[Rfam]
RNA sequence: GAGAGUAGGUCUCUCGUAAUCGGCUGAAAGGAGCUGGUUACAAACCGCCCCCUGCUGCUGAGGUAAAGAGCUUUGGUAGUGAGCGAGAGGGGAAAAGGCACGGCUAGACCGAGUCAGGU
Numbered sequence: 001g002a003g004a005g006u007a008g009g010u011c012u013c014u015c016g017u018a019a020u021c022g023g024c025u026g027a028a029a030g031g032a033g034c035u036g037g038u039u040a041c042a043a044a045c046c047g048c049c050c051c052c053u054g055c056u057g058c059u060g061a062g063g064u065a066a067a068g069a070g071c072u073u074u075g076g077u078a079g080u081g082a083g084c085g086a087g088a089g090g091g092g093a094a095a096a097g098g099c100a101c102g103g104c105u106a107g108a109c110c111g112a113g114u115c116a117g118g119u
Stems, first nucleotide, its partner, number of pairs: 001015005016041006023034003046118001048092004053086001054080002057077003061073004097115003101111002
RNA: Group II catalytic intron D1-D4-2